The family of this 244-nucleotide RNA from Bacillus sp. FJAT-18017 is "BsrG". Lineage of the source: Bacteria > Bacillati > Bacilli > Bacillaceae > Bacillus. Rfam's curators write: bsrE, bsrG and bsrH pair through intermolecular interactions with antisense sRNAs. They form type I toxin/antitoxin system that includes an mRNA encoding for a short, toxic peptide (bsrE, bsrG and bsrH) and an antitoxin that is comprised of an antisense RNA. bsrG encodes a 39-amino-acid toxin, and the 180 nucleotide antisense sRNA called SR4 acts as the antitoxin (they overlap by 123 nucleotides). SR4 interaction with the 3'UTR of bsrG RNA promotes bsrG degradation and inhibits its translation. BsrG interferes with cell envelope biosynthesis, causes membrane invaginations and delocalisation of the cell wall synthesis and initiates autolysis. bsrE RNA encodes 30 amino-acid toxin peptide. The family's RNA type in Rfam is small RNA.

RNA sequence: CAAUAGAAUAGGUUUUCUCAAGGGUGGCCGGUUUACUCCGAUUUGAAAGGGGGGAUGCCGGUGACAGUAUUCGAAUCGUUAACGCUGAUGAUCACGUUCGCAGGUCUUGUAGUCGCGAUUCUGUCUUCUUCACAAAAAAAAUAAUCCACCCUUGAGUUAACGGCUCCAGGUGGAUUAUCUUCCCAACGCCGGCCCCUUAGUGGGAACCGUCUAUUGUAACCGGUCCAUGUUCCCAGCAUGGUCC
Numbered sequence: 001c002a003a004u005a006g007a008a009u010a011g012g013u014u015u016u017c018u019c020a021a022g023g024g025u026g027g028c029c030g031g032u033u034u035a036c037u038c039c040g041a042u043u044u045g046a047a048a049g050g051g052g053g054g055a056u057g058c059c060g061g062u063g064a065c066a067g068u069a070u071u072c073g074a075a076u077c078g079u080u081a082a083c084g085c086u087g088a089u090g091a092u093c094a095c096g097u098u099c100g101c102a103g104g105u106c107u108u109g110u111a112g113u114c115g116c117g118a119u120u121c122u123g124u125c126u127u128c129u130u131c132a133c134a135a136a137a138a139a140a141a142u143a144a145u146c147c148a149c150c151c152u153u154g155a156g157u158u159a160a161c162g163g164c165u166c167c168a169g170g171u172g173g174a175u176u177a178u179c180u181u182c183c184c185a186a187c188g189c190c191g192g193c194c195c196c197u198u199a200g201u202g203g204g205a206a207c208c209g210u211c212u213a214u215u216g217u218a219a220c221c222g223g224u225c226c227a228u229g230u231u232c233c234c235a236g237c238a239u240g241g242u243c244c
Stems, first nucleotide, its partner, number of pairs: 001216005007210001009206001011190003015186001017156008026146002033055002036052004063125005069119001076091003099117003193204003222244002225241007